[Rfam]
Background:
The record is a 111-nucleotide sequence from Equus caballus, which matches "Small nucleolar RNA SNORA25" in Rfam. Rfam describes the family as follows. ACA25 is a member of the H/ACA class of snoRNA that guide the sites of modification of uridines to pseudouridines. Rfam classes the family as an H/ACA-box small nucleolar RNA. Lineage of the source: Eukaryota > Tetrapoda > Laurasiatheria > Equidae > Equus.

RNA sequence: AGGUCAUUUCAAAGAGGGCUUGUGGGGCUGUGAAACCAGGAGCUCUCAACACCGUGACCAAAGACUGAACUUCUCCAUAGGAUGCUGUAGUCAUCCUAUGUAGUAAAUAAA
Numbered sequence: 001a002g003g004u005c006a007u008u009u010c011a012a013a014g015a016g017g018g019c020u021u022g023u024g025g026g027g028c029u030g031u032g033a034a035a036c037c038a039g040g041a042g043c044u045c046u047c048a049a050c051a052c053c054g055u056g057a058c059c060a061a062a063g064a065c066u067g068a069a070c071u072u073c074u075c076c077a078u079a080g081g082a083u084g085c086u087g088u089a090g091u092c093a094u095c096c097u098a099u100g101u102a103g104u105a106a107a108u109a110a111a
Stems, first nucleotide, its partner, number of pairs: 002059006014047008023039001026037002073103002076100001079097006